[Rfam]
RNA sequence: CUACCACAAGCUGGUUUUGAGGGGAAGAUUUUUAGCAGUCGUGGUCAGCCCUAGCUGUGUGGGGGAAUGAAGACCACACCCCACAGUGAGCUGUAUGAUUUAUGUGUGGUUCAUUACUAUUUUAUGGCCCGGAAG
Numbered sequence: 001c002u003a004c005c006a007c008a009a010g011c012u013g014g015u016u017u018u019g020a021g022g023g024g025a026a027g028a029u030u031u032u033u034a035g036c037a038g039u040c041g042u043g044g045u046c047a048g049c050c051c052u053a054g055c056u057g058u059g060u061g062g063g064g065g066a067a068u069g070a071a072g073a074c075c076a077c078a079c080c081c082c083a084c085a086g087u088g089a090g091c092u093g094u095a096u097g098a099u100u101u102a103u104g105u106g107u108g109g110u111u112c113a114u115u116a117c118u119a120u121u122u123u124a125u126g127g128c129c130c131g132g133a134a135g
Stems, first nucleotide, its partner, number of pairs: 004062005012057005021050002023046002027040004072129001074127003078123001085115012
This 135-nucleotide sequence from Ailuropoda melanoleuca belongs to the Rfam family "Small nucleolar RNA SNORA4". A search with the family's covariance model found it, with a score of 58 bits. Its Rfam clan is "SNORA4 clan". ACA4 is a member of the H/ACA class of snoRNA that guide the sites of modification of uridines to pseudouridines.